[Rfam]
RNA sequence: GUACGGUAAUGUAUUGAUGGCAGGCUCUUCUCUGUGGGUCUCUCAUAGUAUACCUGUGCCAGAGGAGCAUGCAGCCCUGAACCAUUGCCCAGCUUCCUCACUGGUGCACUGUGAGCACCAAAGGGGGCUGUAUACUG
Numbered sequence: 001g002u003a004c005g006g007u008a009a010u011g012u013a014u015u016g017a018u019g020g021c022a023g024g025c026u027c028u029u030c031u032c033u034g035u036g037g038g039u040c041u042c043u044c045a046u047a048g049u050a051u052a053c054c055u056g057u058g059c060c061a062g063a064g065g066a067g068c069a070u071g072c073a074g075c076c077c078u079g080a081a082c083c084a085u086u087g088c089c090c091a092g093c094u095u096c097c098u099c100a101c102u103g104g105u106g107c108a109c110u111g112u113g114a115g116c117a118c119c120a121a122a123g124g125g126g127g128c129u130g131u132a133u134a135c136u137g
Stems, first nucleotide, its partner, number of pairs: 001059004005054004015048001017046004022041003025037002072130006088115001090111003095106001
Rfam assigns this 137-nucleotide sequence from Nyctereutes procyonoides to the family "Small nucleolar RNA SNORA42/SNORA80 family". The match comes from Rfam's covariance-model search (89 bits). Rfam describes the family as follows. The members of this family belong to the H/ACA class of snoRNAs that guide the sites of modification of uridines to pseudouridines. Human ACA42 (SNORA42) was cloned from HeLa cells by immunoprecipitation with anti-GAR1 antibody. It is annotated as an H/ACA-box small nucleolar RNA.